[Rfam]
The family of this 150-nucleotide RNA sequence from Carlito syrichta is "U12 minor spliceosomal RNA".
Rfam links the family to the GO terms mRNA branch site recognition, U12 snRNP and pre-mRNA branch point binding.
Pairs were carried over by alignment from the consensus structure.
The family is grouped with related families in Rfam's "U2 clan".

RNA sequence: AUGCCUUAAACUUACGUGUAAGAAAAAUAACGAUUUGGGGUGACCCCUGAAUUCUCACUGCUAAUGUGAGAUGAAUUUUUGAGCAGGUAAAGGUUGCCUCUAAGGUGACCCACCUACUUUACAGGAUGCCUGGGACUCGUGAUCUGCUCG
Numbered sequence: 001a002u003g004c005c006u007u008a009a010a011c012u013u014a015c016g017u018g019u020a021a022g023a024a025a026a027a028u029a030a031c032g033a034u035u036u037g038g039g040g041u042g043a044c045c046c047c048u049g050a051a052u053u054c055u056c057a058c059u060g061c062u063a064a065u066g067u068g069a070g071a072u073g074a075a076u077u078u079u080u081g082a083g084c085a086g087g088u089a090a091a092g093g094u095u096g097c098c099u100c101u102a103a104g105g106u107g108a109c110c111c112a113c114c115u116a117c118u119u120u121a122c123a124g125g126a127u128g129c130c131u132g133g134g135a136c137u138c139g140u141g142a143u144c145u146g147c148u149c150g
Stems, first nucleotide, its partner, number of pairs: 005022004032053008054070005084150001086148003091145007100134002103131005109125002